The record is a 447-nucleotide RNA from Gymnorhina tibicen, which matches "Vertebrate telomerase RNA" in Rfam. About the family: Telomerase is a ribonucleoprotein reverse transcriptase that synthesises telomeric DNA. Telomerase RNAs differ greatly in sequence and structure between vertebrates, ciliates and yeasts, but they share a 5' pseudoknot structure close to the template sequence. Vertebrate telomerase RNAs have a 3' H/ACA snoRNA-like domain. A reference for the family is Chen et al. (2000), "Secondary structure of vertebrate telomerase RNA", Cell. Rfam links the family to the GO terms telomere maintenance via telomerase, telomerase catalytic core complex and telomerase activity. Its Rfam clan is "Telomerase clan". By type it is a non-coding RNA gene. The family's consensus secondary structure is taken from published work.
RNA sequence: CGUGCCGGGGUGGGCAGGCCCUCGGGCUAACUAACCCUAAUGGCGGCUGCGCCCCUCCCCCCCGCCCGCUGUUUUACUCGCUGACUUUCAGCGGGCAAAGGGAGCGGCCCAAGGAAAGGGGGGGGGUGGAAAAGAGGUCCGGCCUCAAAAAACGCCAGCGAGGGGGUCCACACCCCGGCUCACCCUGGGGUCCCUGUCCCUUCUCCGCAACAGGGGAUACCCCGCCGUCGCCCUCGUGGAGGCCGCGGUCGGCAGGCCCAGCGCCACUACCGCCGCGAAGAGCUCGUCUCUGUCAGCCUCGGCGGCGGCCGGAACGGGAGGGCCGGCCCGCCCACCCUGGGCGGCCGGGGGACCCCAGCAGAACAAAACGGGCGCGGCGCCGCCGGGCGCUGAGCAACCGCGGCUCCCUCAGACGUGGGGUGCGCGGCCGGCGCCGCCCCGACACCC
Numbered sequence: 001c002g003u004g005c006c007g008g009g010g011u012g013g014g015c016a017g018g019c020c021c022u023c024g025g026g027c028u029a030a031c032u033a034a035c036c037c038u039a040a041u042g043g044c045g046g047c048u049g050c051g052c053c054c055c056u057c058c059c060c061c062c063c064g065c066c067c068g069c070u071g072u073u074u075u076a077c078u079c080g081c082u083g084a085c086u087u088u089c090a091g092c093g094g095g096c097a098a099a100g101g102g103a104g105c106g107g108c109c110c111a112a113g114g115a116a117a118g119g120g121g122g123g124g125g126g127u128g129g130a131a132a133a134g135a136g137g138u139c140c141g142g143c144c145u146c147a148a149a150a151a152a153c154g155c156c157a158g159c160g161a162g163g164g165g166g167u168c169c170a171c172a173c174c175c176c177g178g179c180u181c182a183c184c185c186u187g188g189g190g191u192c193c194c195u196g197u198c199c200c201u202u203c204u205c206c207g208c209a210a211c212a213g214g215g216g217a218u219a220c221c222c223c224g225c226c227g228u229c230g231c232c233c234u235c236g237u238g239g240a241g242g243c244c245g246c247g248g249u250c251g252g253c254a255g256g257c258c259c260a261g262c263g264c265c266a267c268u269a270c271c272g273c274c275g276c277g278a279a280g281a282g283c284u285c286g287u288c289u290c291u292g293u294c295a296g297c298c299u300c301g302g303c304g305g306c307g308g309c310c311g312g313a314a315c316g317g318g319a320g321g322g323c324c325g326g327c328c329c330g331c332c333c334a335c336c337c338u339g340g341g342c343g344g345c346c347g348g349g350g351g352a353c354c355c356c357a358g359c360a361g362a363a364c365a366a367a368a369c370g371g372g373c374g375c376g377g378c379g380c381c382g383c384c385g386g387g388c389g390c391u392g393a394g395c396a397a398c399c400g401c402g403g404c405u406c407c408c409u410c411a412g413a414c415g416u417g418g419g420g421u422g423c424g425c426g427g428c429c430g431g432c433g434c435c436g437c438c439c440c441g442a443c444a445c446c447c
Stems, first nucleotide, its partner, number of pairs: 004179009014169001017168006051105002054102002064096008080159004085154001086152003185358007198322007222311001224309004229304004244277005250272003255265003279291004370439004376435006398427005405420004